RNA sequence: AAAAACCUGGAAUGUUCGAUAAUUUCUGAUGUUUUGAACCUACAUGACUUAAAAAGGGAUUCCUAUAUCCAUAUCUUGAUGUCAGGCCUCAUUCUUUAGAGGAAGGCAGAUAAUAUGUGCGGUUGCCCACCUAGUAAACGCUAGGAGUCAAGAAUCAGAAACCGGCAUUUUGGGUUUUUA
Numbered sequence: 001a002a003a004a005a006c007c008u009g010g011a012a013u014g015u016u017c018g019a020u021a022a023u024u025u026c027u028g029a030u031g032u033u034u035u036g037a038a039c040c041u042a043c044a045u046g047a048c049u050u051a052a053a054a055a056g057g058g059a060u061u062c063c064u065a066u067a068u069c070c071a072u073a074u075c076u077u078g079a080u081g082u083c084a085g086g087c088c089u090c091a092u093u094c095u096u097u098a099g100a101g102g103a104a105g106g107c108a109g110a111u112a113a114u115a116u117g118u119g120c121g122g123u124u125g126c127c128c129a130c131c132u133a134g135u136a137a138a139c140g141c142u143a144g145g146a147g148u149c150a151a152g153a154a155u156c157a158g159a160a161a162c163c164g165g166c167a168u169u170u171u172g173g174g175u176u177u178u179u180a
Stems, first nucleotide, its partner, number of pairs: 002178014017164002031155004035150003039145002056128003062122002067118001070117005082106002087102004
6S / SsrS RNA: a 180-nucleotide RNA from Catonella morbi. The source organism's lineage runs through Bacteria, Clostridia, Lachnospirales, Lachnospiraceae and Catonella morbi. The family's consensus secondary structure is taken from published work.